[Rfam]
RNA sequence: CGGGGACCAGGCAGACUCCCCGUCAGACGCCUUCGUCCAAGCUCUGC
Numbered sequence: 001c002g003g004g005g006a007c008c009a010g011g012c013a014g015a016c017u018c019c020c021c022g023u024c025a026g027a028c029g030c031c032u033u034c035g036u037c038c039a040a041g042c043u044c045u046g047c
Stems, first nucleotide, its partner, number of pairs: 001022006011047005026037004